[Rfam]
Notes: Rfam assigns this 101-nucleotide RNA sequence from Cavia porcellus to the family "Vault RNA". From the family's description: This family of RNAs are found as part of the enigmatic vault ribonucleoprotein complex. Lineage of the source: Eukaryota > Opisthokonta > Euarchontoglires > Hystricomorpha > Cavia. Pairs were carried over by alignment from the consensus structure, which is taken from published work. Rfam classes the family as a non-coding RNA gene.

RNA sequence: GAGCUGGCUUUAGCCCAGCGGUUCCUUUGAGUCUGGCUUCCCAACUGCCGGGGCAGAUUGGUCCGGUGGUUCAAGACCCGCGGGCACUUUCCAUCUUACUC
Numbered sequence: 001g002a003g004c005u006g007g008c009u010u011u012a013g014c015c016c017a018g019c020g021g022u023u024c025c026u027u028u029g030a031g032u033c034u035g036g037c038u039u040c041c042c043a044a045c046u047g048c049c050g051g052g053g054c055a056g057a058u059u060g061g062u063c064c065g066g067u068g069g070u071u072c073a074a075g076a077c078c079c080g081c082g083g084g085c086a087c088u089u090u091c092c093a094u095c096u097u098a099c100u101c
Base pairs, nucleotide, nucleotide: 002096003095005093006092007091013085014084015083016082018081019080020079021078026075027074028073029072030071